[Rfam]
RNA: transfer-messenger RNA
Organism: Flavobacterium silvaticum
RNA sequence: GGGGUCGACUGGUUUUGACAGCAAGACCAAUGGAACGGUAAGCACGUCGUGAAGGCAGCAAUUCACGUUAAUCCCGAGCUGCAACCUUUUUAAACGGCGAGAAUAACUACGCUUUGGCUGCUUAAUCUGAAUAAAGUAAGAUUAAUCCACGUCCCUACAAGGUAGGGAGGCUGAAUUCUCCUGAAGAGCCUUGGUUUGUGGCGCUUCGUCAAGGGGAACCGUAAAAAUGAACCUAGAUUGUCUUUUGCUCUGCGGGACUUUCGAAAUUUAAAGAGCUAAGUGUUUUGUGGCCUUUUCCCGGCCAAGCGCAGCAUCGAAAACCCAAGCGGGAAAUAAGCGUGUAGAAAGCUCUUUUAUUGCUUGUUUGGACCCGGGUUCGAUUCCCGGCGACUCCACGA
Number, nucleotide and partner (000 for none) at each position: 001g394002g393003g392004g391005u390006c389007g388008a000009c000010u000011g000012g000013u000014u000015u000016u000017g000018a000019c367020a366021g364022c363023a362024a361025g360026a000027c000028c000029a000030a357031u356032g355033g354034a353035a352036c000037g350038g349039u348040a000041a000042g000043c341044a340045c339046g338047u337048c067049g066050u065051g064052a063053a000054g000055g082056c081057a080058g079059c078060a000061a000062u000063u052064c051065a050066c049067g048068u000069u000070a000071a000072u000073c000074c000075c000076g000077a000078g059079c058080u057081g056082c055083a000084a000085c000086c000087u000088u000089u000090u000091u000092a000093a000094a000095c000096g000097g000098c000099g000100a000101g000102a000103a000104u000105a000106a000107c000108u000109a000110c000111g000112c000113u000114u000115u000116g000117g000118c000119u000120g147121c000122u145123u144124a143125a142126u141127c140128u000129g000130a000131a000132u000133a000134a000135a000136g000137u000138a000139a000140g127141a126142u125143u124144a123145a122146u000147c120148c000149a000150c000151g000152u000153c000154c000155c000156u000157a000158c000159a000160a000161g000162g000163u000164a000165g000166g000167g000168a000169g000170g000171c000172u000173g000174a000175a000176u218177u217178c216179u215180c214181c213182u000183g207184a206185a205186g204187a000188g202189c201190c200191u000192u000193g000194g232195u231196u230197u229198g228199u227200g190201g189202c188203g000204c186205u185206u184207c183208g000209u000210c000211a000212a000213g181214g180215g179216g178217a177218a176219c000220c000221g000222u000223a000224a000225a000226a000227a199228u198229g197230a196231a195232c194233c000234u000235a000236g262237a261238u000239u000240g258241u257242c256243u000244u000245u000246u000247g276248c275249u274250c273251u272252g000253c000254g000255g000256g242257a241258c240259u000260u000261u237262c236263g000264a000265a000266a000267u000268u000269u000270a000271a000272a251273g250274a249275g248276c247277u000278a000279a000280g314281u313282g312283u311284u310285u000286u308287g307288u306289g000290g303291c000292c301293u000294u333295u332296u331297c330298c328299c000300g000301g292302c000303c290304a000305a000306g288307c287308g286309c000310a284311g283312c282313a281314u280315c000316g000317a000318a000319a000320a000321c000322c000323c000324a000325a000326g000327c000328g298329g000330g297331a296332a295333a294334u000335a000336a000337g047338c046339g045340u044341g043342u000343a000344g000345a000346a000347a000348g039349c038350u037351c000352u035353u034354u033355u032356a031357u030358u000359g000360c025361u024362u023363g022364u021365u000366u020367g019368g000369a000370c000371c387372c386373g385374g384375g383376u000377u000378c000379g000380a000381u000382u000383c375384c374385c373386g372387g371388c007389g006390a005391c004392u003393c002394c001395a000396c000397g000398a000